cow-rumen-1 RNA: a 60-nucleotide RNA. By type it is a small RNA.
[Rfam]
RNA sequence: UCACCGGCAUCUGCGUUAAAGUUUGGCAGAGUAAACCCGGCACCGGAUAUAACGAAGAGG
Numbered sequence: 001u002c003a004c005c006g007g008c009a010u011c012u013g014c015g016u017u018a019a020a021g022u023u024u025g026g027c028a029g030a031g032u033a034a035a036c037c038c039g040g041c042a043c044c045g046g047a048u049a050u051a052a053c054g055a056a057g058a059g060g
Stems, first nucleotide, its partner, number of pairs: 004040004010030004015022002
Dot-bracket structure: ...((((..((((.((....))....))))......))))....................